[Rfam]
The family of this 359-nucleotide part of an RNA from Methanocalculus chunghsingensis is "Archaeal large subunit ribosomal RNA".
The base pairs follow the family's consensus structure, which is taken from published work.
Lineage of the source: Archaea > Methanobacteriati > Methanomicrobia > Methanocalculaceae > Methanocalculus.
The family is grouped with related families in Rfam's "LSU clan".
The match comes from Rfam's covariance-model search (2900 bits).
Nucleotides: 359
Base pairs, nucleotide, nucleotide: 001326002325003324004323010321011320012319013318014317015316016315017314019312020311021310036060037059038058039057040056045050061083062082063081064080065079066078067077068076069075084088096305097304098303099302100301101300102299103297104296107121108120109119124159125158126157127156128155129154130153131152132149136145137144138143163291164290165289167222168221169220172219173218174215175214176213177212178211181210182209183208189202190201191200192199223241224240225239226238227237228236242246262278263277264276265275266274267273340357341356342355343354344353
Number, partner (000 for none) and nucleotide at each position: 001326c002325g003324g004323a005000g006000c007000u008000a009000a010321u011320u012319g013318u014317g015316g016315u017314a018000a019312g020311g021310g022000a023000a024000c025000u026000c027000g028000g029000c030000a031000a032000a033000a034000u035000g036060g037059c038058c039057c040056c041000g042000u043000a044000a045050c046000u047000u048000c049000g050045g051000g052000a053000g054000a055000a056040g057039g058038g059037g060036u061083g062082c063081c064080u065079g066078c067077c068076u069075g070000g071000a072000g073000a074000u075069c076068a077067g078066g079065c080064a081063g082062g083061u084088c085000g086000c087000a088084g089000u090000g091000a092000c093000c094000a095000g096305g097304g098303a099302a100301c101300u102299c103297c104296a105000a106000c107121u108120g109119u110000c111000u112000a113000a114000u115000a116000a117000c118000a119109a120108c121107a122000u123000a124159g125158c126157a127156g128155a129154c130153u131152g132149c133000a134000a135000c136145u137144c138143c139000g140000u141000a142000a143138g144137g145136a146000c147000u148000c149132g150000u151000a152131u153130a154129g155128u156127c157126u158125g159124u160000g161000a162000a163291u164290c165289c166000u167222g168221c169220c170000c171000a172219g173218u174215g175214c176213g177212g178211g179000u180000a181210u182209c183208u184000g185000a186000a187000c188000a189202c190201c191200g192199a193000g194000u195000a196000c197000a198000a199192u200191c201190g202189g203000a204000c205000g206000a207000a208183g209182g210181a211178c212177c213176c214175g215174u216000a217000a218173a219172c220169g221168g222167c223241g224240g225239g226238g227237g228236u229000a230000a231000c232000u233000a234000u235000g236228a237227c238226c239225c240224u241223c242246u243000u244000a245000a246242g247000g248000u249000a250000g251000c252000g253000u254000a255000g256000u257000a258000c259000c260000u261000u262278g263277u264276c265275g266274c267273u268000u269000a270000a271000u272000u273267g274266g275265c276264g277263a278262c279000u280000u281000g282000c283000a284000u285000g286000a287000a288000u289165g290164g291163a292000a293000c294000a295000a296104u297103g298000a299102g300101a301100g302099u303098u304097c305096u306000a307000c308000u309000g310021u311020c312019c313000c314017u315016a316015c317014c318013a319012c320011a321010a322000g323004u324003c325002c326001g327000u328000u329000g330000a331000a332000c333000c334000u335000u336000u337000u338000a339000u340357c341356c342355u343354a344353g345000u346000g347000c348000a349000g350000a351000g352000g353344c354343u355342a356341g357340g358000g359000a